[Rfam]
RNA sequence: AGAUGGUUGCUCGAGUGGCUGAAGAGGUUAGUCUCGAAAACUAAUAAUGAGUUUUUCAUUCAAGGGUUCAAAUCCCUUACCAUCUG
Numbered sequence: 001a002g003a004u005g006g007u008u009g010c011u012c013g014a015g016u017g018g019c020u021g022a023a024g025a026g027g028u029u030a031g032u033c034u035c036g037a038a039a040a041c042u043a044a045u046a047a048u049g050a051g052u053u054u055u056u057c058a059u060u061c062a063a064g065g066g067u068u069c070a071a072a073u074c075c076c077u078u079a080c081c082a083u084c085u086g
Stems, first nucleotide, its partner, number of pairs: 001085007010026003028044005062078005
Notes
The record is an 86-nucleotide RNA from Metamycoplasma arthritidis, which matches "tRNA" in Rfam. The family's consensus secondary structure is taken from published work. It is annotated as a transfer RNA. The match comes from Rfam's covariance-model search (53 bits).